[Rfam]
Rfam assigns this 141-nucleotide RNA sequence to the family "IMES-2 RNA motif". By type it is a non-coding RNA gene. Rfam's curators put it in the seed alignment. The base pairs follow the family's consensus structure, which is taken from published work. For this family Rfam cites "Exceptional structured noncoding RNAs revealed by bacterial metagenome analysis" (Weinberg et al., Nature, 2009).
RNA sequence: AAUUGAAUUGAGAGGCAACUCUCAACUGGCCAGUUAAGGAAAGGCCGAGAGGUUUAAGCUUAACGGGCAGAAAGUUCUGCAGAGUAGCGCUAAAAUUGCAGAGCGGGAGGUUCGGCGGUAGCGCCUAAAACGACGAACCAA
Number, nucleotide and partner (000 for none) at each position: 001a000002a000003u000004u000005g000006a000007a000008u025009u024010g023011a022012g021013a020014g019015g000016c000017a000018a000019c014020u013021c012022u011023c010024a009025a008026c070027u069028g068029g000030c067031c066032a000033g064034u063035u062036a061037a060038g059039g000040a000041a000042a000043g054044g053045c052046c051047g000048a000049g000050a000051g046052g045053u044054u043055u000056a000057a000058g000059c038060u037061u036062a035063a034064c033065g000066g031067g030068c028069a027070g026071a000072a000073a000074g104075u103076u102077c101078u100079g099080c098081a097082g000083a000084g000085u000086a000087g124088c123089g122090c121091u120092a000093a000094a000095a000096u000097u081098g080099c079100a078101g077102a076103g075104c074105g000106g000107g000108a000109g139110g138111u137112u136113c135114g134115g000116c132117g131118g000119u000120a091121g090122c089123g088124c087125c000126u000127a000128a000129a000130a000131c117132g116133a000134c114135g113136a112137a111138c110139c109140a000141a000